A member of the RNA family "Small nucleolar RNA SNORA75" from Lates calcarifer, 132 nucleotides long. The literature on the family includes a 1997 paper in Genes Dev by Ganot et al., "The family of box ACA small nucleolar RNAs is defined by an evolutionarily conserved secondary structure and ubiquitous sequence elements essential for RNA accumulation". Lineage of the source: Eukaryota > Eumetazoa > Actinopterygii > Clupeocephala > Lates.
RNA sequence: ACCUUCUCAUGAGCUCCUCCUAAUCUUACCCAUGAUUUUGCAUGGAUUCGCACGAGAAGCAGAGCCAAUGCAUAGUUAGAACAGGCUGGCCCUCAUCUCAUGGGUGUUGCCUAUGUCUGCUGUGCAACAGAU
Numbered sequence: 001a002c003c004u005u006c007u008c009a010u011g012a013g014c015u016c017c018u019c020c021u022a023a024u025c026u027u028a029c030c031c032a033u034g035a036u037u038u039u040g041c042a043u044g045g046a047u048u049c050g051c052a053c054g055a056g057a058a059g060c061a062g063a064g065c066c067a068a069u070g071c072a073u074a075g076u077u078a079g080a081a082c083a084g085g086c087u088g089g090c091c092c093u094c095a096u097c098u099c100a101u102g103g104g105u106g107u108u109g110c111c112u113a114u115g116u117c118u119g120c121u122g123u124g125c126a127a128c129a130g131a132u
Stems, first nucleotide, its partner, number of pairs: 003059006013051002015046003022037004070125006090106001092104004